Small nucleolar RNA SNORA51: a 128-nucleotide RNA sequence from Sciurus vulgaris. Rfam describes the family as follows. ACA51 is a member of the H/ACA class of snoRNA that guide the sites of modification of uridines to pseudouridines. Pairs were carried over by alignment from the consensus structure, which was predicted with PFOLD. Taxonomically the source falls in Sciurus (Eukaryota, Metazoa, Sciuromorpha, Sciurinae). Rfam 15.1 lists 2,121 matches to the family in 210 species. Rfam links the family to the GO terms nucleolus and RNA processing.

RNA sequence: GGUCUCCUUGUGUGUCCACAGGCUGCAUCCUCAAACUGUAGAGAAAAAGGAGGCAAAGCAAAUGUACCUGCAUCCCUUUCAAUCUCCCAGGCCCUGGGCCUGGUCUGUACCCUGAACCGGUGACUUGG
Numbered sequence: 001g002g003u004c005u006c007c008u009u010g011u012g013u014g015u016c017c018a019c020a021g022g023c024u025g026c027a028u029c030c031u032c033a034a035a036c037u038g039u040a041g042a043g044a045a046a047a048a049g050g051a052g053g054c055a056a057a058g059c060a061a062a063u064g065u066a067c068c069u070g071c072a073u074c075c076c077u078u079u080c081a082a083u084c085u086c087c088c089a090g091g092c093c094c095u096g097g098g099c100c101u102g103g104u105c106u107g108u109a110c111c112c113u114g115a116a117c118c119g120g121u122g123a124c125u126u127g128g
Stems, first nucleotide, its partner, number of pairs: 002054007019038003025032001067120002070117001080107002087103006